Rfam assigns this 122-nucleotide sequence from Ramlibacter albus to the family "Burkholderia RNA 11". Taxonomically the source falls in Ramlibacter (Bacteria, Pseudomonadati, Burkholderiales, Comamonadaceae). Its family is annotated with protein binding in the Gene Ontology. About the family: Co-purified with Hfq, expression confirmed by Northern blot.

RNA sequence: GCAACCUGAAGCUCGCGCACGGGAACAUCGUCGUGUUCCGCUCGCUGCUGGGCAUCAGCUGGAUGUGGUUCUUCGGCGCGGUGUUCCUGUCGCAGUUCCCGAGCUUCGCCAAGGACGUGCUG
Dot-bracket structure: .........(((.((.((..(((.((......)).))).)).))..))).(((((...((.((...((..((.(((((.((....))))))).))..)).....)....).))...))))).